[Rfam]
RNA: U7 small nuclear RNA
Organism: Myotis lucifugus
RNA sequence: CAGUGCUUACAGCUCUUUCCGAAUUUGUCCAGCAGGUCUUCCGGCUUUUAUUGGACGGCCCUA
Dot-bracket structure: ..................................((((.(((((......))))).))))...